[Rfam]
The family of this 90-nucleotide sequence from Bacillus methanolicus is "c-di-GMP-I riboswitch aptamer". A search with the family's covariance model found it, with a score of 70 bits. The literature on the family includes a 2008 paper in Science by Sudarsan et al., "Riboswitches in Eubacteria Sense the Second Messenger Cyclic Di-GMP". Gene Ontology term of the family: cyclic-di-GMP binding. Taxonomically the source falls in Bacillus methanolicus (Bacteria, Bacillota, Caryophanales, Bacillus).
RNA sequence: AUAUUUAUUUGGCAAACUACUCGAAAGAGUAGGACGCAAAGCUAAAGGGGCUACAUCUAUUUAUAAAAGAUAUGCCAGCCAGUUGCACUU
Numbered sequence: 001a002u003a004u005u006u007a008u009u010u011g012g013c014a015a016a017c018u019a020c021u022c023g024a025a026a027g028a029g030u031a032g033g034a035c036g037c038a039a040a041g042c043u044a045a046a047g048g049g050g051c052u053a054c055a056u057c058u059a060u061u062u063a064u065a066a067a068a069g070a071u072a073u074g075c076c077a078g079c080c081a082g083u084u085g086c087a088c089u090u
Stems, first nucleotide, its partner, number of pairs: 012037002017032006040084004047080002049076003056070003